RNA sequence: GCCGCUCGCCAGGGGUCUCCCGCAGGGGAGUGAGACAUACCCUUCGAACCUGAUGCGGUUGAUACCGCCGUAGGGAGGGCAGGAUGCCGCGUGU
Numbered sequence: 001g002c003c004g005c006u007c008g009c010c011a012g013g014g015g016u017c018u019c020c021c022g023c024a025g026g027g028g029a030g031u032g033a034g035a036c037a038u039a040c041c042c043u044u045c046g047a048a049c050c051u052g053a054u055g056c057g058g059u060u061g062a063u064a065c066c067g068c069c070g071u072a073g074g075g076a077g078g079g080c081a082g083g084a085u086g087c088c089g090c091g092u093g094u
Stems, first nucleotide, its partner, number of pairs: 006082001008080003011043004016037001017030005049074004055068004
The record is a 94-nucleotide RNA from Betaproteobacteria bacterium SCN1, which matches "TPP riboswitch aptamer (THI element)" in Rfam. Pairs were carried over by alignment from the consensus structure, which is taken from published work. Lineage of the source: Bacteria > Pseudomonadati > Pseudomonadota > Betaproteobacteria.